[Rfam]
RNA sequence: GCCUUUGAAAUUCCGGACGGGCAGUCCUAUAUGUCCCCUGUCGGGCAACCGACUAUGGACAUAAACGCGCACGUAAUAAGCGGUUCGGACCCGGGGGCGGUACCCGGCGGCUCCACCAUACAUCCUUUGUUGGGGGAUCAUGGGGCCGAAACAGGAUCGACGAACGUCUAAAGGUGUUUGCUUUGUCCCGGUGAGUUACCACCGUUAUCGGUACGCUAAGCAUAAUUGCCAACAACAAUCGUGCUCCGGUUGCUCUGGCCGCGUAAGCGGUUCGAGUAAUCGAUCUUUAAGUCCUUGCGCUUAGCCGCGUAAGGCGGGGUUCGCAGGCACCUGGCAACAGAAGCCUGCACU
Numbered sequence: 001g002c003c004u005u006u007g008a009a010a011u012u013c014c015g016g017a018c019g020g021g022c023a024g025u026c027c028u029a030u031a032u033g034u035c036c037c038c039u040g041u042c043g044g045g046c047a048a049c050c051g052a053c054u055a056u057g058g059a060c061a062u063a064a065a066c067g068c069g070c071a072c073g074u075a076a077u078a079a080g081c082g083g084u085u086c087g088g089a090c091c092c093g094g095g096g097g098c099g100g101u102a103c104c105c106g107g108c109g110g111c112u113c114c115a116c117c118a119u120a121c122a123u124c125c126u127u128u129g130u131u132g133g134g135g136g137a138u139c140a141u142g143g144g145g146c147c148g149a150a151a152c153a154g155g156a157u158c159g160a161c162g163a164a165c166g167u168c169u170a171a172a173g174g175u176g177u178u179u180g181c182u183u184u185g186u187c188c189c190g191g192u193g194a195g196u197u198a199c200c201a202c203c204g205u206u207a208u209c210g211g212u213a214c215g216c217u218a219a220g221c222a223u224a225a226u227u228g229c230c231a232a233c234a235a236c237a238a239u240c241g242u243g244c245u246c247c248g249g250u251u252g253c254u255c256u257g258g259c260c261g262c263g264u265a266a267g268c269g270g271u272u273c274g275a276g277u278a279a280u281c282g283a284u285c286u287u288u289a290a291g292u293c294c295u296u297g298c299g300c301u302u303a304g305c306c307g308c309g310u311a312a313g314g315c316g317g318g319g320u321u322c323g324c325a326g327g328c329a330c331c332u333g334g335c336a337a338c339a340g341a342a343g344c345c346u347g348c349a350c351u
Stems, first nucleotide, its partner, number of pairs: 040053005057188005067181002069177004081166002085163003091107005108148007189204004195214002198212003317332004323348006
Rfam assigns this 351-nucleotide RNA from Pseudooceanicola nanhaiensis to the family "Alphaproteobacteria transfer-messenger RNA".
By type it is a non-coding RNA gene.
Rfam's curators write: Bacterial tmRNA, also known as 10Sa RNA or SsrA, is named for its dual tRNA and mRNA-like properties. Its role is to liberate the mRNA from a stalled ribosome.
The base pairs follow the family's consensus structure, which is taken from published work.
A reference for the family is Williams (2002), "The tmRNA Website: invasion by an intron", Nucleic Acids Res.
The match comes from Rfam's covariance-model search (312 bits).